[Rfam]
RNA sequence: UGCAGAGUAGAACCGCGUGCGUUAGGAAGCAUUGAAGCACCAUUCCUUACAGUGCCUUGUGAACAGGGAGUUGUCACAGGGACGAAAGAGACCAGACGCCAUGUCAUUUUGUCUUGCGAUACGAGGUUCGCAUCCCGCUGCU
Numbered sequence: 001u002g003c004a005g006a007g008u009a010g011a012a013c014c015g016c017g018u019g020c021g022u023u024a025g026g027a028a029g030c031a032u033u034g035a036a037g038c039a040c041c042a043u044u045c046c047u048u049a050c051a052g053u054g055c056c057u058u059g060u061g062a063a064c065a066g067g068g069a070g071u072u073g074u075c076a077c078a079g080g081g082a083c084g085a086a087a088g089a090g091a092c093c094a095g096a097c098g099c100c101a102u103g104u105c106a107u108u109u110u111g112u113c114u115u116g117c118g119a120u121a122c123g124a125g126g127u128u129c130g131c132a133u134c135c136c137g138c139u140g141c142u
Stems, first nucleotide, its partner, number of pairs: 002141004010129005016123004020118003052083002055081008066135003070131001088115004
RNA: THF (Tetrahydrofolate) riboswitch aptamer
Organism: Lachnospiraceae bacterium A4